[Rfam]
RNA sequence: ACCGCCACGCCUCUUAACAAUGCGCAACCUUGGCGGUU
Numbered sequence: 001a002c003c004g005c006c007a008c009g010c011c012u013c014u015u016a017a018c019a020a021u022g023c024g025c026a027a028c029c030u031u032g033g034c035g036g037u038u
Stems, first nucleotide, its partner, number of pairs: 001037006008024003
abiF RNA: a 38-nucleotide RNA from Janthinobacterium sp. Marseille. Taxonomically the source falls in Janthinobacterium (Bacteria, Betaproteobacteria, Burkholderiales, Oxalobacteraceae). The family's consensus secondary structure is taken from published work. Actinobacteria, Bacteroidetes, Clostridia, Proteobacteria, one Clostridia phage. Rfam's curators put it in the seed alignment.